[Rfam]
RNA sequence: UUAUAUAAGCAAUAAGUCCGCUGUGAGUUGUUUUGGGCGUUCCCUUCUAUCUUGUUGGCCACAGCCUAAACGUGAAGAUUCACAGCGGCGUGCUUUAA
Numbered sequence: 001u002u003a004u005a006u007a008a009g010c011a012a013u014a015a016g017u018c019c020g021c022u023g024u025g026a027g028u029u030g031u032u033u034u035g036g037g038c039g040u041u042c043c044c045u046u047c048u049a050u051c052u053u054g055u056u057g058g059c060c061a062c063a064g065c066c067u068a069a070a071c072g073u074g075a076a077g078a079u080u081c082a083c084a085g086c087g088g089c090g091u092g093c094u095u096u097a098a
Base pairs, nucleotide, nucleotide: 001098002097003096005094009091010090024082025081026080027079028078029077031076032070033069034068035067036066037065038064043058044057047054
Notes: Rfam assigns this 98-nucleotide RNA from Candidatus Termititenax aidoneus to the family "DUF3800-V RNA". Lineage of the source: Bacteria > Bacillati > Candidatus Termititenacales > Candidatus Termititenacaceae > Candidatus Termititenax. Pairs were carried over by alignment from the consensus structure, which is taken from published work. It scores 48 bits against the family's covariance model. It is annotated as a small RNA.